The family of this 80-nucleotide RNA from Brassica carinata is "MIR164 microRNA precursor family". Its family is annotated with RISC complex and miRNA-mediated post-transcriptional gene silencing in the Gene Ontology. The match comes from Rfam's covariance-model search (67 bits). Taxonomically the source falls in Brassica (Eukaryota, Viridiplantae, Spermatophyta, Magnoliopsida).
RNA sequence: UGGAGGAGGGGAGCACGUGCAAAAAGCUCAUGAAACAUAUUUCGUGAUUGUUGGUUUUGCACGUGCCCUGCUUCUCCAAC
Numbered sequence: 001u002g003g004a005g006g007a008g009g010g011g012a013g014c015a016c017g018u019g020c021a022a023a024a025a026g027c028u029c030a031u032g033a034a035a036c037a038u039a040u041u042u043c044g045u046g047a048u049u050g051u052u053g054g055u056u057u058u059g060c061a062c063g064u065g066c067c068c069u070g071c072u073u074c075u076c077c078a079a080c
Stems, first nucleotide, its partner, number of pairs: 001078008010069002013066012028047008